[Rfam]
RNA sequence: UGAGCAGGCUGUGUGAUAGCGUGGCGUUUGCCAUGAGGAAAGUCCGAGCAUCAUAGGACGGGAUAGCUGCUAACGGCAGCCGGAGGCGACUCUAGAGCUAGUGCAACAGAGAGAUACCGCCGUACUUCGGUACGGUAAGGGUGGAAAGGUGCGGUAAGAGCGCACCAGAGUGCAGGAGACUGCACUGCUAUGUAAACCUUAUCCGAUGCAACGCCUAUUGGUACGCACUGCCGCAACAUCGGUCCGGUGGGCAGCGGCGUAAUGGCGGCUUGAACUGUGAGGCGACUUGCAGGCUAGAUAAAUUAUCACACACGACAGAACUCGGCUUAUAGGUCUGGUCAUAAG
Number, nucleotide and partner (000 for none) at each position: 001u341002g340003a339004g000005c337006a336007g335008g334009c333010u332011g330012u310013g309014u308015g307016a306017u305018a304019g000020c035021g034022u033023g032024g031025c030026g000027u000028u000029u000030g025031c024032c023033a022034u021035g020036a000037g000038g000039a000040a328041a327042g326043u000044c325045c324046g323047a322048g321049c208050a207051u206052c205053a000054u000055a000056g245057g244058a243059c242060g000061g204062g203063a202064u201065a200066g080067c079068u078069g077070c076071u000072a000073a000074c000075g000076g070077c069078a068079g067080c066081c095082g093083g092084a091085g090086g000087c000088g000089a000090c085091u084092c083093u082094a000095g081096a199097g198098c000099u000100a000101g197102u196103g193104c192105a191106a000107c000108a000109g000110a000111g000112a000113g000114a000115u000116a000117c140118c139119g136120c135121c134122g133123u132124a131125c130126u000127u000128c000129g000130g125131u124132a123133c122134g121135g120136u119137a000138a000139g118140g117141g000142u000143g000144g000145a000146a000147a000148g166149g165150u164151g163152c162153g161154g000155u000156a000157a000158g000159a000160g000161c153162g152163c151164a150165c149166c148167a000168g188169a186170g185171u184172g183173c182174a181175g180176g000177a000178g000179a000180c175181u174182g173183c172184a171185c170186u169187g000188c168189u000190a000191u105192g104193u103194a000195a000196a102197c101198c097199u096200u065201a064202u063203c062204c061205g052206a051207u050208g049209c000210a000211a000212c267213g266214c265215c264216u000217a000218u000219u000220g000221g000222u000223a000224c000225g000226c256227a000228c254229u253230g252231c251232c000233g000234c000235a000236a000237c249238a248239u247240c246241g000242g059243u058244c057245c056246g240247g239248u238249g237250g000251g231252c230253a229254g228255c000256g226257g000258c000259g000260u000261a000262a000263u000264g215265g214266c213267g212268g000269c000270u000271u000272g000273a000274a000275c292276u291277g290278u289279g288280a287281g286282g000283c000284g000285a000286c281287u280288u279289g278290c277291a276292g275293g000294c000295u000296a000297g000298a000299u000300a000301a000302a000303u000304u018305a017306u016307c015308a014309c013310a012311c000312a000313c000314g000315a000316c000317a000318g000319a000320a000321c048322u047323c046324g045325g044326c042327u041328u040329a000330u011331a000332g010333g009334u008335c007336u006337g005338g000339u003340c002341a001342u000343a000344a000345g000
The family of this 345-nucleotide RNA from Ruminococcus sp. CAG:330 is "Bacterial RNase P class A". From the family's description: Ribonuclease P (RNase P) is a ubiquitous endoribonuclease, found in archaea, bacteria and eukarya as well as chloroplasts and mitochondria. Rfam classes the family as a ribozyme. The family's consensus secondary structure is taken from published work.